About this RNA:
The record is an 82-nucleotide sequence from Afipia sp. Root123D2, which matches "Bradyrhizobiaceae sRNA BjrC68" in Rfam.

RNA sequence: CUCUGACAACGGACGGGGCACAAACCCGGCAAUGCCCCGGCCGUCGGAGGGCUCCAGCGCAAGCUGGGGCCCUUCACUUUUU
Number, nucleotide and partner (000 for none) at each position: 001c000002u000003c000004u000005g000006a000007c000008a000009a000010c043011g042012g041013a000014c039015g038016g037017g036018g035019c000020a000021c000022a000023a000024a000025c000026c000027c000028g000029g000030c000031a000032a000033u000034g000035c018036c017037c016038c015039g014040g000041c012042c011043g010044u000045c000046g000047g000048a073049g072050g071051g070052c069053u068054c067055c066056a000057g064058c063059g000060c000061a000062a000063g058064c057065u000066g055067g054068g053069g052070c051071c050072c049073u048074u000075c000076a000077c000078u000079u000080u000081u000082u000

The pairing is the family consensus, mapped onto this sequence.